[Rfam]
RNA: 6C RNA
RNA sequence: GGGGGUGCGGCUCUUCCCCCCAGAGCCGUACCGGGCAGUGGCCCCCGCUACCCCCCCGGCGGGGGCCACUCCUU
Numbered sequence: 001g002g003g004g005g006u007g008c009g010g011c012u013c014u015u016c017c018c019c020c021c022a023g024a025g026c027c028g029u030a031c032c033g034g035g036c037a038g039u040g041g042c043c044c045c046c047g048c049u050a051c052c053c054c055c056c057c058g059g060c061g062g063g064g065g066c067c068a069c070u071c072c073u074u
Stems, first nucleotide, its partner, number of pairs: 002036001004032010037070013